[Rfam]
RNA sequence: GCUCUGUGAUGAACCCCAUGCGUGUCAUCUGAGCCUGGCUUCCCUGUCAUCUCAGCCCAGGUAGUGUUCUACUUCCCAAGGCUGUUGUCUGGCCUGGAAAAGGGGGAUCUCCAGGCAAAGGAUCAACCUUUGUAGUCUGAGAGC
Number, nucleotide and partner (000 for none) at each position: 001g144002c143003u142004c141005u000006g000007u000008g000009a000010u000011g000012a000013a000014c000015c000016c000017c000018a000019u000020g000021c000022g000023u000024g000025u000026c000027a000028u000029c000030u000031g000032a000033g000034c000035c000036u000037g000038g000039c000040u000041u000042c104043c103044c102045u101046g000047u099048c096049a000050u000051c000052u000053c000054a000055g000056c000057c000058c000059a000060g000061g000062u000063a000064g000065u000066g000067u000068u000069c000070u000071a000072c000073u000074u000075c000076c000077c000078a000079a000080g000081g000082c000083u000084g000085u000086u000087g000088u000089c000090u000091g000092g000093c000094c000095u000096g048097g000098a000099a047100a000101a045102g044103g043104g042105g000106g000107a000108u000109c000110u000111c000112c000113a000114g000115g000116c000117a000118a000119a000120g000121g000122a000123u000124c000125a000126a000127c000128c000129u000130u000131u000132g000133u000134a000135g000136u000137c000138u000139g000140a000141g004142a003143g002144c001
RNA: Small nucleolar RNA SNORD10
Organism: Moschus moschiferus